This 102-nucleotide RNA from Aspergillus calidoustus belongs to the Rfam family "Small nucleolar RNA Z13/snr52". Its family is annotated with RNA processing and nucleolus in the Gene Ontology. The organism belongs to Aspergillus subgen. Nidulantes, within Eukaryota. Rfam classes the family as a C/D-box small nucleolar RNA.

[Rfam]
RNA sequence: UAUGAUCAAAUGAUGAAAUAUUUCGGAUGUAAACUCACAGACCUGUUCUGAAUUGCGCAAACAAUUGUGUGGAGAUUUCCGUUGCCUUCCUUCUGACAUCAU
Numbered sequence: 001u002a003u004g005a006u007c008a009a010a011u012g013a014u015g016a017a018a019u020a021u022u023u024c025g026g027a028u029g030u031a032a033a034c035u036c037a038c039a040g041a042c043c044u045g046u047u048c049u050g051a052a053u054u055g056c057g058c059a060a061a062c063a064a065u066u067g068u069g070u071g072g073a074g075a076u077u078u079c080c081g082u083u084g085c086c087u088u089c090c091u092u093c094u095g096a097c098a099u100c101a102u
Base pairs, nucleotide, nucleotide: 003101004100005099024081025080026079027078